[Rfam]
RNA: Ruegeria cis2 sRNA
RNA sequence: AGAACUAUAGCGCGGAUAGUAAUUGACAAAGACAUAUCCCCGAGCCUGAUCAAUGCAGUGGAAAAGUGGGUUCCAGUCGAACAUCGCCAGCAUGAAACCCGGCAGGGUGUUGGCGACAAACAUCUUGCCCGAGGCGAUCAUAUUGGCCCGUUG
Numbered sequence: 001a002g003a004a005c006u007a008u009a010g011c012g013c014g015g016a017u018a019g020u021a022a023u024u025g026a027c028a029a030a031g032a033c034a035u036a037u038c039c040c041c042g043a044g045c046c047u048g049a050u051c052a053a054u055g056c057a058g059u060g061g062a063a064a065a066g067u068g069g070g071u072u073c074c075a076g077u078c079g080a081a082c083a084u085c086g087c088c089a090g091c092a093u094g095a096a097a098c099c100c101g102g103c104a105g106g107g108u109g110u111u112g113g114c115g116a117c118a119a120a121c122a123u124c125u126u127g128c129c130c131g132a133g134g135c136g137a138u139c140a141u142a143u144u145g146g147c148c149c150g151u152u153g
Base pairs, nucleotide, nucleotide: 002035006032008030013025014024015023037057039055042051043050065152066151067150068149070082071081072080073079086147087146088145089144090143092141093140094139098134099133100131101130102129103127104126105125106124107123108122110119111118112117